This 105-nucleotide sequence from Psychrobacillus psychrotolerans belongs to the Rfam family "SAM riboswitch aptamer (S box leader)". A search with the family's covariance model found it, with a score of 87 bits.
[Rfam]
RNA sequence: CUCUUAUUAAGAGAGGUGGAGGGAAGUGCCCUUUGAAGCCCGGCAACCGUCAUGUAAAUGAAAUGGUGCCAAGUCACGCAAAGCAAAUGCUUUGGGAAAUGAGAG
Numbered sequence: 001c002u003c004u005u006a007u008u009a010a011g012a013g014a015g016g017u018g019g020a021g022g023g024a025a026g027u028g029c030c031c032u033u034u035g036a037a038g039c040c041c042g043g044c045a046a047c048c049g050u051c052a053u054g055u056a057a058a059u060g061a062a063a064u065g066g067u068g069c070c071a072a073g074u075c076a077c078g079c080a081a082a083g084c085a086a087a088u089g090c091u092u093u094g095g096g097a098a099a100u101g102a103g104a105g
Stems, first nucleotide, its partner, number of pairs: 001105008013041001015040003021031003026077003042070004047066002050061003074097001079094006
Dot-bracket structure: ((((((((....(.(((...(((..[[[)))......))))((((.((.(((......)))...))))))...(]]].((((((....))))))..)))))))))